[Rfam]
Shown here is a 154-nucleotide RNA sequence from Jiella endophytica, a member of the family "Alphaproteobacterial sRNA ar9".
The match comes from Rfam's covariance-model search (77 bits).
The family's RNA type in Rfam is small RNA.
RNA sequence: AUAAAAAGCGUGCCAUGAAUGGCGCGAAAUCAAGCGGUCUAGUCUUGGGAGGACGUGAUUUCCGGCGCGGUUGCAAAGCCGCAGCCCCGGCUCAGUCCGGAGCGAAAUCCAGGCGCGCGAAUUGGAAUGCAAGGCGAAAGCCUUGCAUUUUUUU
Numbered sequence: 001a002u003a004a005a006a007a008g009c010g011u012g013c014c015a016u017g018a019a020u021g022g023c024g025c026g027a028a029a030u031c032a033a034g035c036g037g038u039c040u041a042g043u044c045u046u047g048g049g050a051g052g053a054c055g056u057g058a059u060u061u062c063c064g065g066c067g068c069g070g071u072u073g074c075a076a077a078g079c080c081g082c083a084g085c086c087c088c089g090g091c092u093c094a095g096u097c098c099g100g101a102g103c104g105a106a107a108u109c110c111a112g113g114c115g116c117g118c119g120a121a122u123u124g125g126a127a128u129g130c131a132a133g134g135c136g137a138a139a140g141c142c143u144u145g146c147a148u149u150u151u152u153u154u
Stems, first nucleotide, its partner, number of pairs: 001154001003152002009026006034116003042054004057109005064086003067082005087100003128147008